[Rfam]
RNA sequence: CCUUUGGAGUGUCAUAUCAAACAUUAGUAGAUUUAUUAUCGAAAAUGGACACAAUGAACAAGGAA
Numbered sequence: 001c002c003u004u005u006g007g008a009g010u011g012u013c014a015u016a017u018c019a020a021a022c023a024u025u026a027g028u029a030g031a032u033u034u035a036u037u038a039u040c041g042a043a044a045a046u047g048g049a050c051a052c053a054a055u056g057a058a059c060a061a062g063g064a065a
Stems, first nucleotide, its partner, number of pairs: 001063004009052005022047003030040003